[Rfam]
RNA sequence: GGCGGGUCUCCCUGCAUAGCAAGUUGGAGCAACGGGUCAGGGGCGGAAGCCAGCAGCCCACUCUGAGGCGUUAGUGCCAGGGGUUUGGCUCGCCACC
Numbered sequence: 001g002g003c004g005g006g007u008c009u010c011c012c013u014g015c016a017u018a019g020c021a022a023g024u025u026g027g028a029g030c031a032a033c034g035g036g037u038c039a040g041g042g043g044c045g046g047a048a049g050c051c052a053g054c055a056g057c058c059c060a061c062u063c064u065g066a067g068g069c070g071u072u073a074g075u076g077c078c079a080g081g082g083g084u085u086u087g088g089c090u091c092g093c094c095a096c097c
Base pairs, nucleotide, nucleotide: 004091005090006089007088008087009083010082011081012080013079014078015074017073018072019071020070024066025065026064027063028062029061034059035058036057037056042051043050044049

This 97-nucleotide RNA sequence from Neisseria arctica belongs to the Rfam family "Bacterial small signal recognition particle RNA". The signal recognition particle (SRP) is a universally conserved ribonucleoprotein involved in the co-translational targeting of proteins to membranes. A reference for the family is Rosenblad et al. (2003), "SRPDB: Signal Recognition Particle Database", Nucleic Acids Res. The family's consensus secondary structure is taken from published work. The organism belongs to Neisseria, within Bacteria. It is annotated as a non-coding RNA gene.